RNA sequence: CCCUCUUGAUCGGGAGAGGGCAGACACGCGCUGCCGCCGAAGGGGCAUCACCCAAAAACUCUCAGGCAAAAGGACCGGUCAGGGGUC
Numbered sequence: 001c002c003c004u005c006u007u008g009a010u011c012g013g014g015a016g017a018g019g020g021c022a023g024a025c026a027c028g029c030g031c032u033g034c035c036g037c038c039g040a041a042g043g044g045g046c047a048u049c050a051c052c053c054a055a056a057a058a059c060u061c062u063c064a065g066g067c068a069a070a071a072g073g074a075c076c077g078g079u080c081a082g083g084g085g086u087c
Stems, first nucleotide, its partner, number of pairs: 006082008020034004036067003039063002043061003
Rfam assigns this 87-nucleotide sequence from Massilia sp. CF038 to the family "Glycine riboswitch aptamer". The pairing is the family consensus, mapped onto this sequence. NCBI's taxonomy places the organism under Bacteria, Pseudomonadati, Pseudomonadota, Betaproteobacteria, Massilia. It scores 58 bits against the family's covariance model.